[Rfam]
RNA sequence: UGUCUAUGCCCUCCUUGGGCGUUUCCUCCCUAGACUUGGACCGCGUCGCCCUGCGCCGCGGUCUUUUUUUACGACCG
Numbered sequence: 001u002g003u004c005u006a007u008g009c010c011c012u013c014c015u016u017g018g019g020c021g022u023u024u025c026c027u028c029c030c031u032a033g034a035c036u037u038g039g040a041c042c043g044c045g046u047c048g049c050c051c052u053g054c055g056c057c058g059c060g061g062u063c064u065u066u067u068u069u070u071a072c073g074a075c076c077g
Stems, first nucleotide, its partner, number of pairs: 008020004040062006047055002

Makes More Granules Regulator RNA (mmgR): a 77-nucleotide RNA from Zhengella mangrovi. The literature on the family includes a 2014 paper in RNA Biol by Torres-Quesada et al., "Genome-wide profiling of Hfq-binding RNAs uncovers extensive post-transcriptional rewiring of major stress response and symbiotic regulons in Sinorhizobium meliloti". It is annotated as a small RNA. A search with the family's covariance model found it, with a score of 64 bits. The source organism's lineage runs through Bacteria, Pseudomonadati, Hyphomicrobiales, Notoacmeibacteraceae and Zhengella.